[Rfam]
RNA sequence: AGCUUUGCGCAGUGGCAGUAUUGUAGCCAAUGAGGUUUAUCCGAGGUGCGAUUAUUGCUAGUUGAAAACUUUUCCCAACACCCCGCCAUGAUGACUUGAAAUAUAGUCAGCAUUGGCAAUUUUUGGCAGUUUCUACGUGCACUGAAU
Number, nucleotide and partner (000 for none) at each position: 001a000002g000003c000004u000005u000006u000007g000008c000009g000010c000011a000012g000013u000014g000015g000016c000017a000018g000019u000020a052021u051022u050023g049024u048025a000026g047027c046028c045029a000030a000031u000032g000033a000034g042035g041036u000037u000038u000039a000040u000041c035042c034043g000044a000045g028046g027047u026048g024049c023050g022051a021052u020053u000054a000055u000056u000057g000058c000059u000060a000061g000062u000063u000064g000065a000066a000067a000068a000069c000070u000071u000072u000073u000074c000075c000076c000077a000078a000079c000080a000081c000082c000083c000084c000085g117086c116087c115088a113089u112090g111091a000092u109093g108094a107095c106096u105097u000098g000099a000100a000101a000102u000103a000104u000105a096106g095107u094108c093109a092110g000111c090112a089113u088114u000115g087116g086117c085118a000119a000120u000121u000122u000123u000124u000125g000126g000127c000128a000129g000130u000131u146132u145133c144134u000135a000136c000137g000138u000139g000140c000141a000142c000143u000144g133145a132146a131147u000
Shown here is a 147-nucleotide RNA sequence from Sapajus apella, a member of the family "U4 spliceosomal RNA". Taxonomically the source falls in Sapajus (Eukaryota, Deuterostomia, Gnathostomata, Primates). The literature on the family includes a 1997 paper in Nucleic Acids Res by Zwieb, "The uRNA database". By type it is a spliceosomal small nuclear RNA.